[Rfam]
RNA: RT-3 RNA
RNA sequence: CAUCGUUCCUCCGGCAUAUCGGUUCGCGCAACCGAACAACCGUGAGCGAGUAACCCGAACCGCAGUAACCCCGGCAUCAUGUCCGGAAAACUGAAACAUAAAUUGGGGUAGUGAUUUGUAGGGCGCGGCAACGCGCAUCGAACAUCAUAGACCCC
Numbered sequence: 001c002a003u004c005g006u007u008c009c010u011c012c013g014g015c016a017u018a019u020c021g022g023u024u025c026g027c028g029c030a031a032c033c034g035a036a037c038a039a040c041c042g043u044g045a046g047c048g049a050g051u052a053a054c055c056c057g058a059a060c061c062g063c064a065g066u067a068a069c070c071c072c073g074g075c076a077u078c079a080u081g082u083c084c085g086g087a088a089a090a091c092u093g094a095a096a097c098a099u100a101a102a103u104u105g106g107g108g109u110a111g112u113g114a115u116u117u118g119u120a121g122g123g124c125g126c127g128g129c130a131a132c133g134c135g136c137a138u139c140g141a142a143c144a145u146c147a148u149a150g151a152c153c154c155c
Base pairs, nucleotide, nucleotide: 003049004048005047006046007045008044012042013041014040020034021033022032023031024030063093064092065091066090072085073084074083075081105155106154107153108152109151111148112147113146114145115144121138123136124135125134126133127132